Small nucleolar RNA Z279/snoR105/snoR108: a 103-nucleotide RNA sequence from Durio zibethinus. For this family Rfam cites "Experimental RNomics: identification of 140 candidates for small non-messenger RNAs in the plant Arabidopsis thaliana" (Marker et al., Curr Biol, 2002). Gene Ontology terms of the family: nucleolus and RNA processing. The base pairs follow the family's consensus structure, which was predicted with PFOLD. Clan: snoU13 clan. Rfam describes the family as follows. This family includes the plant snoRNAs known as Z279, snoR105 and snoR108.
RNA sequence: GGGAUAUGAUGAGUGGUCGUUACUCGCAAACGCUGCGAGAUGGGUGUCCGCUCCAACGCCUGGUUACGACAUCUGGACACUCUCCUCUUUACCACCUGAUCCC
Numbered sequence: 001g002g003g004a005u006a007u008g009a010u011g012a013g014u015g016g017u018c019g020u021u022a023c024u025c026g027c028a029a030a031c032g033c034u035g036c037g038a039g040a041u042g043g044g045u046g047u048c049c050g051c052u053c054c055a056a057c058g059c060c061u062g063g064u065u066a067c068g069a070c071a072u073c074u075g076g077a078c079a080c081u082c083u084c085c086u087c088u089u090u091a092c093c094a095c096c097u098g099a100u101c102c103c
Stems, first nucleotide, its partner, number of pairs: 001103004014094004023039005042082007061075003